ZMP/ZTP riboswitch aptamer (pfl RNA motif): an 85-nucleotide RNA from Vineibacter terrae. Rfam links the family to the GO terms regulation of purine nucleotide biosynthetic process and one-carbon metabolic process. The match comes from Rfam's covariance-model search (62 bits).
RNA sequence: CCCCGUCCGUGUGACUGGCGAGUCAAGGUGGCGUCCACCACCGGGGAGCACGGACAGCCGGGGGCCGCUCGCCUGGGCAUGUUUC
Numbered sequence: 001c002c003c004c005g006u007c008c009g010u011g012u013g014a015c016u017g018g019c020g021a022g023u024c025a026a027g028g029u030g031g032c033g034u035c036c037a038c039c040a041c042c043g044g045g046g047a048g049c050a051c052g053g054a055c056a057g058c059c060g061g062g063g064g065c066c067g068c069u070c071g072c073c074u075g076g077g078c079a080u081g082u083u084u085c
Stems, first nucleotide, its partner, number of pairs: 003057001005055008015045002017073005028041004062080001064078003